[Rfam]
RNA sequence: AUCGUCCGCCUCGUGGACUGCCCGAACAUCAGGGCGCGGUCCCGGAUACCCUGACGUCGUGUGUCCUGCCGGAAGACCUCCACGACCGGACCUUCCGGGCAGCCGCAAAGCCGACAGCCGUCGCACCUGAGGGAGCCCUUUCCAUG
Number, nucleotide and partner (000 for none) at each position: 001a000002u000003c000004g000005u000006c000007c000008g000009c000010c000011u000012c000013g000014u000015g000016g000017a000018c000019u000020g000021c000022c000023c000024g000025a000026a000027c000028a000029u000030c000031a000032g000033g000034g000035c000036g000037c000038g000039g000040u000041c000042c000043c000044g000045g000046a000047u000048a000049c000050c000051c000052u000053g000054a000055c000056g000057u000058c000059g000060u107061g106062u105063g104064u000065c000066c102067u101068g100069c099070c000071g000072g000073a000074a000075g000076a000077c000078c000079u000080c000081c000082a000083c000084g000085a000086c000087c000088g000089g000090a000091c000092c000093u000094u000095c000096c000097g000098g000099g069100c068101a067102g066103c000104c063105g062106c061107a060108a000109a000110g124111c123112c000113g122114a121115c120116a000117g000118c000119c000120g115121u114122c113123g111124c110125a000126c000127c000128u000129g000130a000131g000132g000133g000134a000135g000136c000137c000138c000139u000140u000141u000142c000143c000144a000145u000146g000
The family of this 146-nucleotide sequence from Streptomyces viridosporus is "Streptomyces-metH RNA". The family's RNA type in Rfam is small RNA. NCBI's taxonomy places the organism under Bacteria, Bacillati, Actinomycetes, Streptomyces, Streptomyces viridosporus. The sequence is in the family's curated seed alignment. The base pairs follow the family's consensus structure, which is taken from published work.